[Rfam]
RNA sequence: GGCGAUAAACGGCUCGUGAAAUAAGUGUUGCGGACCCGGGGGCAGUGCCCGGCGUUUCCAUAAUAUGCGUGGUGUGCUCUUUCCCCUCGCGGGGUUUGGGUAUUCGGCGGGAGAGACUGGUUUUCUCGAAGUUGCCCUCGGUCUGUACGGUCGGGGUCUGUUGCGGGAAAGAUCAGGUGUCCCUGCGGUUUGUUCCUGGCCUGAGUGGCCGGAACAUUCGGCAGAAGAGACCGCGGGACUUCGGUCUUGUGUCGCUCUGCGGUGGGAACGAAACAGUCUCGACGCGCGCGGUAAAGACGUGUCUUUUGCCCGGCAUUGUACCACCGUCAUCGGGCUAUAUCACAAGUGCCAAUGAUAACGUUCGCGAGAACGUGGCGCUCGCUGCCUAG
Numbered sequence: 001g002g003c004g005a006u007a008a009a010c011g012g013c014u015c016g017u018g019a020a021a022u023a024a025g026u027g028u029u030g031c032g033g034a035c036c037c038g039g040g041g042g043c044a045g046u047g048c049c050c051g052g053c054g055u056u057u058c059c060a061u062a063a064u065a066u067g068c069g070u071g072g073u074g075u076g077c078u079c080u081u082u083c084c085c086c087u088c089g090c091g092g093g094g095u096u097u098g099g100g101u102a103u104u105c106g107g108c109g110g111g112a113g114a115g116a117c118u119g120g121u122u123u124u125c126u127c128g129a130a131g132u133u134g135c136c137c138u139c140g141g142u143c144u145g146u147a148c149g150g151u152c153g154g155g156g157u158c159u160g161u162u163g164c165g166g167g168a169a170a171g172a173u174c175a176g177g178u179g180u181c182c183c184u185g186c187g188g189u190u191u192g193u194u195c196c197u198g199g200c201c202u203g204a205g206u207g208g209c210c211g212g213a214a215c216a217u218u219c220g221g222c223a224g225a226a227g228a229g230a231c232c233g234c235g236g237g238a239c240u241u242c243g244g245u246c247u248u249g250u251g252u253c254g255c256u257c258u259g260c261g262g263u264g265g266g267a268a269c270g271a272a273a274c275a276g277u278c279u280c281g282a283c284g285c286g287c288g289c290g291g292u293a294a295a296g297a298c299g300u301g302u303c304u305u306u307u308g309c310c311c312g313g314c315a316u317u318g319u320a321c322c323a324c325c326g327u328c329a330u331c332g333g334g335c336u337a338u339a340u341c342a343c344a345a346g347u348g349c350c351a352a353u354g355a356u357a358a359c360g361u362u363c364g365c366g367a368g369a370a371c372g373u374g375g376c377g378c379u380c381g382c383u384g385c386c387u388a389g
Stems, first nucleotide, its partner, number of pairs: 001310005015299003026288003030285003036052005053270009311326003
RNA: permuted transfer-messenger RNA